[Rfam]
RNA sequence: UCACCCCACGGGGGAGAGUCCUCGUGCAACGCGCGAGGCGCCGAAGGGGCAAAUCUCCCCGGAACCUCUCAGGCGCCAGGACCCCGCGGAUCAG
Numbered sequence: 001u002c003a004c005c006c007c008a009c010g011g012g013g014g015a016g017a018g019u020c021c022u023c024g025u026g027c028a029a030c031g032c033g034c035g036a037g038g039c040g041c042c043g044a045a046g047g048g049g050c051a052a053a054u055c056u057c058c059c060c061g062g063a064a065c066c067u068c069u070c071a072g073g074c075g076c077c078a079g080g081a082c083c084c085c086g087c088g089g090a091u092c093a094g
Base pairs, nucleotide, nucleotide: 006089007088009086010085011084012083013082020038021037022036023035040074041073042072043070044069047068048067049066

This 94-nucleotide sequence from Janibacter cremeus belongs to the Rfam family "Glycine riboswitch aptamer".
The source organism's lineage runs through Bacteria, Actinomycetota, Actinomycetes, Intrasporangiaceae and Janibacter.
About the family: This family represents the bacterial glycine riboswitch.
The family has 44 seed sequences and 9,425 matches in Rfam 15.1.
The base pairs follow the family's consensus structure.
For this family Rfam cites "In Vivo Behavior of the Tandem Glycine Riboswitch in Bacillus subtilis" (Babina et al., MBio, 2017).